The family of this 589-nucleotide part of an RNA is "Bacterial large subunit ribosomal RNA".

[Rfam]
RNA sequence: CCUGCACCUGGACAGAAAGACCCUAUGAAGCUUUACUGUAGCUUGGGAUUGACUUUGGGUUUAUUUUGCGCAGUAUAUGUGGGAGGCUAAGAAAGUAUAUUUUUGGAUAUACUCGAGCCAUCAAUGAGAUACCACUCUAAGUAAACUAAAAUUCUAACUUUGAUAGUCGUUAACCGGCCAAAGAACAUUUCCAGGUGGGCAGUUUGACUGGGGCGGUCGCCUCCUAAAAAGUAACGGAGGCGUGCAAAGGUUUCCUCAGACUGGUCGGAAAUCAGUCUUCGAGUAUAAAGGCAUAAGGAAGCUUGACUGCAAGACCUACAAGUCGAGCAGAGACGAAAGUCGGCCUUAGUGAUCCGACAGUACUGAGUGGAAAGACUGUCGCUCAACGGAUAAAAGUUACUCUAGGGAUAACAGGCUGAUCUCCCCCAAGAGUUCACAUCGACGGGGAGGUUUGGCACCUCGAUGUCGGCUCAUCGCAUCCUGGGGCGGUAGUACGUCCCAAGGGUUGGGCUGUUCGCCCAUGAAAGCGGUACGCGAGCUGGGUUCAGAACGUCGUGAGACAGUUCGGUCCAUAUCCGGUGCAGGCGUU
Numbered sequence: 001c002c003u004g005c006a007c008c009u010g011g012a013c014a015g016a017a018a019g020a021c022c023c024u025a026u027g028a029a030g031c032u033u034u035a036c037u038g039u040a041g042c043u044u045g046g047g048a049u050u051g052a053c054u055u056u057g058g059g060u061u062u063a064u065u066u067u068g069c070g071c072a073g074u075a076u077a078u079g080u081g082g083g084a085g086g087c088u089a090a091g092a093a094a095g096u097a098u099a100u101u102u103u104u105g106g107a108u109a110u111a112c113u114c115g116a117g118c119c120a121u122c123a124a125u126g127a128g129a130u131a132c133c134a135c136u137c138u139a140a141g142u143a144a145a146c147u148a149a150a151a152u153u154c155u156a157a158c159u160u161u162g163a164u165a166g167u168c169g170u171u172a173a174c175c176g177g178c179c180a181a182a183g184a185a186c187a188u189u190u191c192c193a194g195g196u197g198g199g200c201a202g203u204u205u206g207a208c209u210g211g212g213g214c215g216g217u218c219g220c221c222u223c224c225u226a227a228a229a230a231g232u233a234a235c236g237g238a239g240g241c242g243u244g245c246a247a248a249g250g251u252u253u254c255c256u257c258a259g260a261c262u263g264g265u266c267g268g269a270a271a272u273c274a275g276u277c278u279u280c281g282a283g284u285a286u287a288a289a290g291g292c293a294u295a296a297g298g299a300a301g302c303u304u305g306a307c308u309g310c311a312a313g314a315c316c317u318a319c320a321a322g323u324c325g326a327g328c329a330g331a332g333a334c335g336a337a338a339g340u341c342g343g344c345c346u347u348a349g350u351g352a353u354c355c356g357a358c359a360g361u362a363c364u365g366a367g368u369g370g371a372a373a374g375a376c377u378g379u380c381g382c383u384c385a386a387c388g389g390a391u392a393a394a395a396g397u398u399a400c401u402c403u404a405g406g407g408a409u410a411a412c413a414g415g416c417u418g419a420u421c422u423c424c425c426c427c428a429a430g431a432g433u434u435c436a437c438a439u440c441g442a443c444g445g446g447g448a449g450g451u452u453u454g455g456c457a458c459c460u461c462g463a464u465g466u467c468g469g470c471u472c473a474u475c476g477c478a479u480c481c482u483g484g485g486g487c488g489g490u491a492g493u494a495c496g497u498c499c500c501a502a503g504g505g506u507u508g509g510g511c512u513g514u515u516c517g518c519c520c521a522u523g524a525a526a527g528c529g530g531u532a533c534g535c536g537a538g539c540u541g542g543g544u545u546c547a548g549a550a551c552g553u554c555g556u557g558a559g560a561c562a563g564u565u566c567g568g569u570c571c572a573u574a575u576c577c578g579g580u581g582c583a584g585g586c587g588u589u
Stems, first nucleotide, its partner, number of pairs: 001585008010577003015571001022406004027402002029398005035203004042195007051154002054151003058147009068137001079135004085119003094113008158183003164180001166178004206218004219241006242387001244344002250302006256282002259277006283292002307330004313324003332341003355381007363374002415456003419453001420450007430440002467542001468540004472534001473531005480505002483500006507521005548566004552561003